[Rfam]
The family of this 448-nucleotide part of an RNA from Methanolacinia petrolearia is "Archaeal large subunit ribosomal RNA". The source organism's lineage runs through Archaea, Methanobacteriati, Methanomicrobiales, Methanolacinia and Methanolacinia petrolearia.
RNA sequence: CCUCUCGAAACAUGCCGUAGCAUGACCUGAGUGGAGAUAGAUAGUGAGGUAGAGCACUGAUUGUGGGAGUUGGGGGAGAAAUCCCUCACCCUGCUGUCAAACUCCAAAUUCCCUAUCGUCGUAGAAGCUCGGAAGUCCGCACUGCGGGGUAAGCUUGUAGUGCGUAAGGGAGACAACCCAGCCCGUGGUUAAUGUCCCUCAGUGUAGGUUAAGUGUAAACACUAAAUGAGGUCCUAGGUCAAAGACAACUGGAAGGUGAGCUUAGAAGCAGCUAUCCUUUAAAAAGUGCGUAACAGCUUACCAGUCGAGAUUUAGGGCGCAGAAAAUGGACGGGGCUGAAACCUACCACAGAUACCACGGACCAUACUAUGUAUGAUGGCGUAGAGAGGCGUUCUGCAUGGGCGGAAGCAGGGAUGUAAGUUCCUGUGGACCGUGUAGAAAUGAGAAU
Numbered sequence: 001c002c003u004c005u006c007g008a009a010a011c012a013u014g015c016c017g018u019a020g021c022a023u024g025a026c027c028u029g030a031g032u033g034g035a036g037a038u039a040g041a042u043a044g045u046g047a048g049g050u051a052g053a054g055c056a057c058u059g060a061u062u063g064u065g066g067g068a069g070u071u072g073g074g075g076g077a078g079a080a081a082u083c084c085c086u087c088a089c090c091c092u093g094c095u096g097u098c099a100a101a102c103u104c105c106a107a108a109u110u111c112c113c114u115a116u117c118g119u120c121g122u123a124g125a126a127g128c129u130c131g132g133a134a135g136u137c138c139g140c141a142c143u144g145c146g147g148g149g150u151a152a153g154c155u156u157g158u159a160g161u162g163c164g165u166a167a168g169g170g171a172g173a174c175a176a177c178c179c180a181g182c183c184c185g186u187g188g189u190u191a192a193u194g195u196c197c198c199u200c201a202g203u204g205u206a207g208g209u210u211a212a213g214u215g216u217a218a219a220c221a222c223u224a225a226a227u228g229a230g231g232u233c234c235u236a237g238g239u240c241a242a243a244g245a246c247a248a249c250u251g252g253a254a255g256g257u258g259a260g261c262u263u264a265g266a267a268g269c270a271g272c273u274a275u276c277c278u279u280u281a282a283a284a285a286g287u288g289c290g291u292a293a294c295a296g297c298u299u300a301c302c303a304g305u306c307g308a309g310a311u312u313u314a315g316g317g318c319g320c321a322g323a324a325a326a327u328g329g330a331c332g333g334g335g336c337u338g339a340a341a342c343c344u345a346c347c348a349c350a351g352a353u354a355c356c357a358c359g360g361a362c363c364a365u366a367c368u369a370u371g372u373a374u375g376a377u378g379g380c381g382u383a384g385a386g387a388g389g390c391g392u393u394c395u396g397c398a399u400g401g402g403c404g405g406a407a408g409c410a411g412g413g414a415u416g417u418a419a420g421u422u423c424c425u426g427u428g429g430a431c432c433g434u435g436u437a438g439a440a441a442u443g444a445g446a447a448u
Stems, first nucleotide, its partner, number of pairs: 001389006011024005026135001027132006036120003040117005046111002052105001053103002059098003063094005072087006139163009168179003183360007193350003202347001204346006227321002231318010248305005254278003259273003279283001284299001288297002362378001363375005390443001392440010408427008